RNA sequence: UAAGUUCUUCGGGGCAGGGUGAAAUUCCCUACCGGCGGUGACAGUCCGCGACUCGCUAAGGCGACUGAAUCGGUGAAAUUCCGAUACCGACAGUAUAGUCUGGAUGGUAGAAGACAAAA
Number, nucleotide and partner (000 for none) at each position: 001u000002a000003a000004g000005u000006u114007c113008u112009u111010c110011g000012g000013g000014g000015c000016a000017g029018g028019g027020u000021g000022a000023a000024a000025u000026u000027c019028c018029c017030u000031a099032c098033c089034g088035g049036c048037g047038g046039u000040g000041a000042c000043a000044g087045u086046c038047c037048g036049c035050g000051a000052c000053u064054c063055g000056c000057u000058a000059a000060g000061g000062c000063g054064a053065c000066u000067g000068a000069a085070u084071c083072g082073g081074u000075g000076a000077a000078a000079u000080u000081c073082c072083g071084a070085u069086a045087c044088c034089g033090a000091c102092a101093g100094u000095a000096u000097a000098g032099u031100c093101u092102g091103g000104a000105u000106g000107g000108u000109a000110g010111a009112a008113g007114a006115c000116a000117a000118a000119a000
Rfam assigns this 119-nucleotide RNA sequence from Catenisphaera adipataccumulans to the family "FMN riboswitch aptamer (RFN element)". Rfam's curators write: The RFN element is a highly conserved domain that is found frequently in the 5'-untranslated regions of prokaryotic mRNAs that encode for flavin mononucleotide (FMN) biosynthesis and transport proteins. This element is a metabolite-dependent riboswitch that directly binds FMN in the absence of proteins. In Bacillus subtilis, the riboswitch most likely controls gene expression by causing premature transcription termination within the 5' untranslated region of the ribDEAHT operon and precluding access to the ribosome-binding site of ypaA mRNA.The FMN riboswitch structure, reported in present an FMN-bound six-stem junction, adopts a butterfly-like scaffold, stapled together by opposingly directed but nearly identically folded peripheral domains. A search with the family's covariance model found it, with a score of 113 bits. Lineage of the source: Bacteria > Bacillota > Erysipelotrichia > Erysipelotrichales > Catenisphaera.